[Rfam]
RNA sequence: ACCGCGGAUAGGAACCAUCGAGUGAUCGUGUUUGCUCUGUGGGCCGAUUAACCGCGCAAACUAUAUUUGGUGAUAAUGGUCGCAUUUUAACGAAUGUUACUAGUGCAUUACCACUUCAUCGUACAAUU
Numbered sequence: 001a002c003c004g005c006g007g008a009u010a011g012g013a014a015c016c017a018u019c020g021a022g023u024g025a026u027c028g029u030g031u032u033u034g035c036u037c038u039g040u041g042g043g044c045c046g047a048u049u050a051a052c053c054g055c056g057c058a059a060a061c062u063a064u065a066u067u068u069g070g071u072g073a074u075a076a077u078g079g080u081c082g083c084a085u086u087u088u089a090a091c092g093a094a095u096g097u098u099a100c101u102a103g104u105g106c107a108u109u110a111c112c113a114c115u116u117c118a119u120c121g122u123a124c125a126a127u128u
Base pairs, nucleotide, nucleotide: 003056004055005054006053007052011045012044015042016041017040018039020037021036022035023034024033025032069120070119071118072117073116078112079111080110082106083105085103086102092100

Record summary: Shown here is a 128-nucleotide RNA sequence from Haemonchus placei, a member of the family "Nematode snoRNA ceN39". The source organism's lineage runs through Eukaryota, Opisthokonta, Metazoa, Nematoda and Haemonchus. By type it is an H/ACA-box small nucleolar RNA. A search with the family's covariance model found it, with a score of 39 bits. Rfam links the family to the GO terms nucleolus and RNA processing.